[Rfam]
RNA sequence: CGGGUGGUGUACUCCCAGAUCGCGCCCUCGUCCAGGAGCGCCUGGUCGCCGAAGUAGGCGCCGUCGGCGAGGAUUCCGAGGGACCCGUCACCGCCGUAGGGGCCGGUGCCGACCUUCUCGACCCUGCCGUGGGCCAGCAGGAACACCUCGUCGGCCGGACUGCCGAACGAAGCGAUCACCUGGCCGGCCCCGAUCUCCCGCUGCCGGCAGCGGGUGGCCAGCUCCGCGAGCACUUCCUCGUCCUCGUACGACCGCAGGGCCGGCAGCUCGCCCAGCUCCGCCGGGAUCACCUCGACGCGGUCACCGGUCUUCACGAAGGUCACCCGUCCGUCCCCGACGGCGUACGUCAACCGCCGGUUCACCCGGUACGUACCGCCCUGCACGUCCGUCCAGGGCAGCAUGCGCAGCAGCCAGCGCGAGCUGAUCUCCUGCAUCUGCGGUACGGACUUGGUGGUGGUGGCCAGGUUCCGCGCCGCCGCCGUACCGAGGCUCUGCUGCUGCCGG
Numbered sequence: 001c002g003g004g005u006g007g008u009g010u011a012c013u014c015c016c017a018g019a020u021c022g023c024g025c026c027c028u029c030g031u032c033c034a035g036g037a038g039c040g041c042c043u044g045g046u047c048g049c050c051g052a053a054g055u056a057g058g059c060g061c062c063g064u065c066g067g068c069g070a071g072g073a074u075u076c077c078g079a080g081g082g083a084c085c086c087g088u089c090a091c092c093g094c095c096g097u098a099g100g101g102g103c104c105g106g107u108g109c110c111g112a113c114c115u116u117c118u119c120g121a122c123c124c125u126g127c128c129g130u131g132g133g134c135c136a137g138c139a140g141g142a143a144c145a146c147c148u149c150g151u152c153g154g155c156c157g158g159a160c161u162g163c164c165g166a167a168c169g170a171a172g173c174g175a176u177c178a179c180c181u182g183g184c185c186g187g188c189c190c191c192g193a194u195c196u197c198c199c200g201c202u203g204c205c206g207g208c209a210g211c212g213g214g215u216g217g218c219c220a221g222c223u224c225c226g227c228g229a230g231c232a233c234u235u236c237c238u239c240g241u242c243c244u245c246g247u248a249c250g251a252c253c254g255c256a257g258g259g260c261c262g263g264c265a266g267c268u269c270g271c272c273c274a275g276c277u278c279c280g281c282c283g284g285g286a287u288c289a290c291c292u293c294g295a296c297g298c299g300g301u302c303a304c305c306g307g308u309c310u311u312c313a314c315g316a317a318g319g320u321c322a323c324c325c326g327u328c329c330g331u332c333c334c335c336g337a338c339g340g341c342g343u344a345c346g347u348c349a350a351c352c353g354c355c356g357g358u359u360c361a362c363c364c365g366g367u368a369c370g371u372a373c374c375g376c377c378c379u380g381c382a383c384g385u386c387c388g389u390c391c392a393g394g395g396c397a398g399c400a401u402g403c404g405c406a407g408c409a410g411c412c413a414g415c416g417c418g419a420g421c422u423g424a425u426c427u428c429c430u431g432c433a434u435c436u437g438c439g440g441u442a443c444g445g446a447c448u449u450g451g452u453g454g455u456g457g458u459g460g461c462c463a464g465g466u467u468c469c470g471c472g473c474c475g476c477c478g479c480c481g482u483a484c485c486g487a488g489g490c491u492c493u494g495c496u497g498c499u500g501c502c503g504g
Base pairs, nucleotide, nucleotide: 006390007389008388009387011385012384016380018328019327022324024321026319027318028316029315036312037311038310040308041307042306045305048302049300050299051298054233055232059228060227061226063224065111066110067109068108072103074102075101076100077099079097081095082094118221120219122217123216127212130209133205135203136202137201140198141197143196149192150191154188155187156186157185158184160183161178162177235295236294240290241289244286245285249283250282252280254278256277257276261270262269329342330341331340332339353377355375356374357373361371362370391431392430393429394428395427397425399423400422403418404417405416407415437476438475439474440473443470444469445468446467447465448464449463450462451461452460477503478502480500481499484497487496488495